[Rfam]
This 87-nucleotide sequence from Vibrio campbellii belongs to the Rfam family "Group II catalytic intron D1-D4-1".

RNA sequence: CUAAUGCAGCAGUGAUGUUGUGUGACGGGCAAUAAGAAGUCAGCAGAGGGCAUAGUACCUUGAGACAGUACAACUUAAGGGAAGGCC
Numbered sequence: 001c002u003a004a005u006g007c008a009g010c011a012g013u014g015a016u017g018u019u020g021u022g023u024g025a026c027g028g029g030c031a032a033u034a035a036g037a038a039g040u041c042a043g044c045a046g047a048g049g050g051c052a053u054a055g056u057a058c059c060u061u062g063a064g065a066c067a068g069u070a071c072a073a074c075u076u077a078a079g080g081g082a083a084g085g086c087c
Stems, first nucleotide, its partner, number of pairs: 001027001004023008040047002049087003058080006